[Rfam]
RNA sequence: CCGCGAGGACGACCUCGCGCUUCCCCGCAAUCCGGCCGGGACGACCCGC
Number, nucleotide and partner (000 for none) at each position: 001c000002c019003g018004c017005g016006a015007g014008g013009a000010c000011g000012a000013c008014c007015u006016c005017g004018c003019g002020c000021u000022u000023c000024c000025c000026c000027g000028c000029a000030a000031u000032c000033c000034g000035g000036c000037c048038g047039g046040g045041a000042c000043g000044a000045c040046c039047c038048g037049c000